A member of the RNA family "UnaL2 LINE 3' element" from Coregonus sp. 'balchen', 54 nucleotides long. From the family's description: The eel long interspersed element (LINE) UnaL2 and its partner short interspersed element (SINE) share a conserved 3' tail containing a stem-loop that is critical for their retrotransposition. Presumably, the first step of retrotransposition is the recognition of their 3' tails by UnaL2-encoded reverse transcriptase. Gene Ontology term of the family: transposition, RNA-mediated. The match comes from Rfam's covariance-model search (57 bits). The family's consensus secondary structure is taken from published work. Rfam classes the family as a cis-regulatory element.

[Rfam]
RNA sequence: ACAGUCAAGGGGUGUUAGUCGCUCUGGAUAAGAGCGUCUGCUAAAUGACGUAAA
Numbered sequence: 001a002c003a004g005u006c007a008a009g010g011g012g013u014g015u016u017a018g019u020c021g022c023u024c025u026g027g028a029u030a031a032g033a034g035c036g037u038c039u040g041c042u043a044a045a046u047g048a049c050g051u052a053a054a
Stems, first nucleotide, its partner, number of pairs: 013043001014041002020036006